Annotation:
This 165-nucleotide RNA from Anabas testudineus belongs to the Rfam family "Small Cajal body specific RNA 1". Its family is annotated with RNA processing, nucleolus and Cajal body in the Gene Ontology.
RNA sequence: AUGCACCAGAUACGAGCCUGACAGUCUACCCUGUCCUGGAUGUGUUGCACACUGGGAUUUCCCAUGGCUGCAAGGCUUCAAACGGUGCGAGAACAACAUCAGCCCUGAGAUUUAAGCUUUUCAGUGGGAAGUUACACUGUUGAGUUAUGGCUCAGAGGCACAGAU
Numbered sequence: 001a002u003g004c005a006c007c008a009g010a011u012a013c014g015a016g017c018c019u020g021a022c023a024g025u026c027u028a029c030c031c032u033g034u035c036c037u038g039g040a041u042g043u044g045u046u047g048c049a050c051a052c053u054g055g056g057a058u059u060u061c062c063c064a065u066g067g068c069u070g071c072a073a074g075g076c077u078u079c080a081a082a083c084g085g086u087g088c089g090a091g092a093a094c095a096a097c098a099u100c101a102g103c104c105c106u107g108a109g110a111u112u113u114a115a116g117c118u119u120u121u122c123a124g125u126g127g128g129a130a131g132u133u134a135c136a137c138u139g140u141u142g143a144g145u146u147a148u149g150g151c152u153c154a155g156a157g158g159c160a161c162a163g164a165u
Stems, first nucleotide, its partner, number of pairs: 003088005015077004022070005028060001029055002033050002036047001038045001102159003124135004140155006

Rfam describes the family as follows. scaRNAs are a specific class of small nuclear RNAs which localise to the Cajal bodies and guide the modification of RNA polymerase II transcribed spliceosomal RNAs U1, U2, U4, U5 and U12. It is annotated as a small Cajal body RNA. The family has 29 seed sequences and 715 matches in Rfam 15.1.